Shown here is an 81-nucleotide RNA sequence from Megalops atlanticus, a member of the family "mir-187 microRNA precursor family". The base pairs follow the family's consensus structure, which was predicted with RNAalifold.
RNA sequence: UGGCAUGAGCCAGGGGCUGCAACACAGGACAUGGGAGCUCUCUCUCCCCCUCGUGUCUUGUGUUGCAGCCAGUGGAACGGA
Number, nucleotide and partner (000 for none) at each position: 001u000002g000003g000004c000005a000006u000007g000008a000009g000010c000011c074012a073013g000014g000015g070016g069017c068018u067019g000020c065021a064022a063023c062024a061025c060026a059027g058028g057029a056030c055031a000032u053033g052034g051035g050036a000037g000038c000039u000040c000041u000042c000043u000044c000045u000046c000047c000048c000049c000050c035051u034052c033053g032054u000055g030056u029057c028058u027059u026060g025061u024062g023063u022064u021065g020066c000067a018068g017069c016070c015071a000072g000073u012074g011075g000076a000077a000078c000079g000080g000081a000